This 54-nucleotide RNA from Synaphobranchus kaupii belongs to the Rfam family "UnaL2 LINE 3' element".
Pairs were carried over by alignment from the consensus structure, which is taken from published work.
From the family's description: The eel long interspersed element (LINE) UnaL2 and its partner short interspersed element (SINE) share a conserved 3' tail containing a stem-loop that is critical for their retrotransposition.
It scores 57 bits against the family's covariance model.

[Rfam]
RNA sequence: AAUAAGAAGUUGUGUAAGUCGCUCUGGAUAAGAGCAUCUGCUAAAAUGCUAAUG
Numbered sequence: 001a002a003u004a005a006g007a008a009g010u011u012g013u014g015u016a017a018g019u020c021g022c023u024c025u026g027g028a029u030a031a032g033a034g035c036a037u038c039u040g041c042u043a044a045a046a047u048g049c050u051a052a053u054g
Base pairs, nucleotide, nucleotide: 013043014041015040016039021035022034023033024032025031